Shown here is an 89-nucleotide RNA from Cellulomonas sp. PhB150, a member of the family "ZMP/ZTP riboswitch aptamer (pfl RNA motif)". Rfam links the family to the GO terms regulation of purine nucleotide biosynthetic process and one-carbon metabolic process. The match comes from Rfam's covariance-model search (57 bits). The base pairs follow the family's consensus structure, which is taken from published work. The source organism's lineage runs through Bacteria, Bacillati, Actinomycetes, Micrococcales and Cellulomonas.

[Rfam]
RNA sequence: GUGCGAUGUCGUGACUGGCGCAACGGGUGGGUUACCACCGGGGAGCGACGAGCAGCAGGACCAACGGGUCGGACGCCUGGGCCCCCGGU
Number, nucleotide and partner (000 for none) at each position: 001g000002u000003g000004c000005g000006a000007u050008g049009u048010c047011g046012u045013g000014a000015c042016u041017g077018g076019c075020g074021c000022a000023a000024c000025g000026g000027g038028u037029g036030g035031g000032u000033u000034a000035c030036c029037a028038c027039c000040g000041g016042g015043g000044a000045g012046c011047g010048a009049c008050g007051a000052g000053c000054a000055g000056c000057a000058g000059g000060a000061c000062c000063a000064a000065c000066g084067g083068g082069u081070c080071g000072g000073a000074c020075g019076c018077c017078u000079g000080g070081g069082c068083c067084c066085c000086c000087g000088g000089u000